RNA sequence: UUCUGAUUGGACGAUGACGGUCACAUAUCAGGUUCUGAUUGGACGUUGACUCUAUGGACGAUGAAACUGUAUUGUUGUUGUCAACUUCCAAUCAGAACUGACACCUGAUAAUCAUCGUCC
Numbered sequence: 001u002u003c004u005g006a007u008u009g010g011a012c013g014a015u016g017a018c019g020g021u022c023a024c025a026u027a028u029c030a031g032g033u034u035c036u037g038a039u040u041g042g043a044c045g046u047u048g049a050c051u052c053u054a055u056g057g058a059c060g061a062u063g064a065a066a067c068u069g070u071a072u073u074g075u076u077g078u079u080g081u082c083a084a085c086u087u088c089c090a091a092u093c094a095g096a097a098c099u100g101a102c103a104c105c106u107g108a109u110a111a112u113c114a115u116c117g118u119c120c
Base pairs, nucleotide, nucleotide: 020109021108022107023106026103029100030099031098033097034096035095036094038092039091040090
RNA: MIR1520 microRNA precursor family